[Rfam]
RNA sequence: GUGUCACUUGUCCACUUCUGCCUGCCCUGCCUCUCGAAUCUGCUCCACCAUUUGGUCAGGGCAGGCAGAAGUGGACAAGUGAGGA
Numbered sequence: 001g002u003g004u005c006a007c008u009u010g011u012c013c014a015c016u017u018c019u020g021c022c023u024g025c026c027c028u029g030c031c032u033c034u035c036g037a038a039u040c041u042g043c044u045c046c047a048c049c050a051u052u053u054g055g056u057c058a059g060g061g062c063a064g065g066c067a068g069a070a071g072u073g074g075a076c077a078a079g080u081g082a083g084g085a
Stems, first nucleotide, its partner, number of pairs: 002084001004082016021065009031055002036045002
RNA: mir-4436 microRNA precursor family
Organism: Nomascus leucogenys